[Rfam]
RNA sequence: AAAUGUAAGUAGGAGCGCCCGCUUCUCGCCUUGUGACGUAAGUUGCCUGGCUGAUACGUAAAUAAACCGACCACGGUUGAGUGGUUGGGGAUUUAACGGGUGCUUUAGCGCCCGUUUUUUCUUUGCAAC
Numbered sequence: 001a002a003a004u005g006u007a008a009g010u011a012g013g014a015g016c017g018c019c020c021g022c023u024u025c026u027c028g029c030c031u032u033g034u035g036a037c038g039u040a041a042g043u044u045g046c047c048u049g050g051c052u053g054a055u056a057c058g059u060a061a062a063u064a065a066a067c068c069g070a071c072c073a074c075g076g077u078u079g080a081g082u083g084g085u086u087g088g089g090g091a092u093u094u095a096a097c098g099g100g101u102g103c104u105u106u107a108g109c110g111c112c113c114g115u116u117u118u119u120u121c122u123u124u125g126c127a128a129c
Stems, first nucleotide, its partner, number of pairs: 011026006028051003033046005095116009

Ribosomal protein L20 leader: a 129-nucleotide sequence from Secundilactobacillus kimchicus. Rfam classes the family as a cis-regulatory leader. About the family: This family is a putative r-protein leader autoregulatory structure found in B. subtilis and other low-GC Gram-positive bacteria. It is located in the 5' untranslated regions of mRNAs encoding initiation factor 3 followed by ribosomal proteins L35 and L20 (infC-rpmI-rplT). A Rho-independent transcription terminator structure that is probably involved in regulation is included at the 3' end. Its family is annotated with regulation of gene expression in the Gene Ontology. It scores 62 bits against the family's covariance model.